The family of this 173-nucleotide RNA sequence from Pelosinus fermentans is "Lysine riboswitch aptamer".
The base pairs follow the family's consensus structure, which is taken from published work.
The organism belongs to Pelosinus fermentans, within Bacteria.

RNA sequence: AGAUAAGAUAGAGGCGCGGUAUAUUAAGAAUAUGUAUCUAGAGUUGCCAGCGAUGAAAGAUGCAAAAAGGAAUAUCCGCCGAAGUAGAAGGGUUUGGCAAGACCCGUUUAUUGGUUUUGUAUUGAAUAAGUGCAAGACUGUCAUCCAAGUUUGGAUGGAGUGCUAUCUGCAUU
Numbered sequence: 001a002g003a004u005a006a007g008a009u010a011g012a013g014g015c016g017c018g019g020u021a022u023a024u025u026a027a028g029a030a031u032a033u034g035u036a037u038c039u040a041g042a043g044u045u046g047c048c049a050g051c052g053a054u055g056a057a058a059g060a061u062g063c064a065a066a067a068a069g070g071a072a073u074a075u076c077c078g079c080c081g082a083a084g085u086a087g088a089a090g091g092g093u094u095u096g097g098c099a100a101g102a103c104c105c106g107u108u109u110a111u112u113g114g115u116u117u118u119g120u121a122u123u124g125a126a127u128a129a130g131u132g133c134a135a136g137a138c139u140g141u142c143a144u145c146c147a148a149g150u151u152u153g154g155a156u157g158g159a160g161u162g163c164u165a166u167c168u169g170c171a172u173u
Stems, first nucleotide, its partner, number of pairs: 006168006016079004021075005033064007083112006090105005113139011141158007